[Rfam]
RNA sequence: GCUGCCCUGUGGGUGCUGGACCUGAGGCUGCUGUGCUGCACCUGUGACACCAGGGCACAGAGGAAGUGGCUAUUUCUACGCUCAGUGCUCAGAACAGUGGGCACUAAGAGUGGUUUGUAGCCUGACAUUC
Numbered sequence: 001g002c003u004g005c006c007c008u009g010u011g012g013g014u015g016c017u018g019g020a021c022c023u024g025a026g027g028c029u030g031c032u033g034u035g036c037u038g039c040a041c042c043u044g045u046g047a048c049a050c051c052a053g054g055g056c057a058c059a060g061a062g063g064a065a066g067u068g069g070c071u072a073u074u075u076c077u078a079c080g081c082u083c084a085g086u087g088c089u090c091a092g093a094a095c096a097g098u099g100g101g102c103a104c105u106a107a108g109a110g111u112g113g114u115u116u117g118u119a120g121c122c123u124g125a126c127a128u129u130c
Stems, first nucleotide, its partner, number of pairs: 003057007024045001068122003076113003081108002086103006

The family of this 130-nucleotide RNA sequence from Myotis lucifugus is "Small nucleolar RNA SNORA43". The match comes from Rfam's covariance-model search (118 bits). About the family: ACA43 is a member of the H/ACA class of snoRNA that guide the sites of modification of uridines to pseudouridines. Clan: SNORA17 clan. NCBI's taxonomy places the organism under Eukaryota, Dipnotetrapodomorpha, Theria, Yangochiroptera, Myotis. By type it is an H/ACA-box small nucleolar RNA.